RNA sequence: AAAAGAAAUUAGCCGAAUGCCAUUAGGCAGCGGGGGAUUUAUUUUGGGGUGAAUCUAGAUAGUUUGUUUACUUGAUUUUCAAAUUGCUAUCUAGUAGGGACGCUCUCUUCCCGAACCCGACAACUAACCUCGUAGGCGUUAGAGAGGUGGAAC
Numbered sequence: 001a002a003a004a005g006a007a008a009u010u011a012g013c014c015g016a017a018u019g020c021c022a023u024u025a026g027g028c029a030g031c032g033g034g035g036g037a038u039u040u041a042u043u044u045u046g047g048g049g050u051g052a053a054u055c056u057a058g059a060u061a062g063u064u065u066g067u068u069u070a071c072u073u074g075a076u077u078u079u080c081a082a083a084u085u086g087c088u089a090u091c092u093a094g095u096a097g098g099g100a101c102g103c104u105c106u107c108u109u110c111c112c113g114a115a116c117c118c119g120a121c122a123a124c125u126a127a128c129c130u131c132g133u134a135g136g137c138g139u140u141a142g143a144g145a146g147g148u149g150g151a152a153c
Stems, first nucleotide, its partner, number of pairs: 012137003018029003030133006040046002047118003055094009097112004
Rfam assigns this 153-nucleotide RNA from Caloramator mitchellensis to the family "c-di-AMP riboswitch aptamer (ydaO/yuaA leader)".
This family represents a conserved RNA structure found upstream of the ydaO and yuaA genes in Bacillus subtilis and related genes in other bacteria.
The source organism's lineage runs through Bacteria, Bacillati, Bacillota, Eubacteriales and Caloramator.